[Rfam]
RNA sequence: CAGAAAGGCGCUCCUGACCUCGCGAGGACAUGACCGUAGACAAGUCAUAUCCUUGCAGCUCAGAGCACCUUUCUCCACGUUUCGGCCACCCCCAUGCCGAUCUCCGGGGGCGCAG
Numbered sequence: 001c002a003g004a005a006a007g008g009c010g011c012u013c014c015u016g017a018c019c020u021c022g023c024g025a026g027g028a029c030a031u032g033a034c035c036g037u038a039g040a041c042a043a044g045u046c047a048u049a050u051c052c053u054u055g056c057a058g059c060u061c062a063g064a065g066c067a068c069c070u071u072u073c074u075c076c077a078c079g080u081u082u083c084g085g086c087c088a089c090c091c092c093c094a095u096g097c098c099g100a101u102c103u104c105c106g107g108g109g110g111c112g113c114a115g
Base pairs, nucleotide, nucleotide: 002074003073004072005071006070007069008068010066011065012064013063015062016061017060019058022056023055024054026052027051028050031047033045034044098112099111101109102108

Actinobacteria sRNA Ms_IGR-7: a 115-nucleotide RNA from Alloactinosynnema sp. L-07. The family's RNA type in Rfam is small RNA. The pairing is the family consensus, mapped onto this sequence. A search with the family's covariance model found it, with a score of 47 bits. For this family Rfam cites "Identification of small RNAs in Mycobacterium smegmatis using heterologous Hfq" (Li et al., RNA, 2013).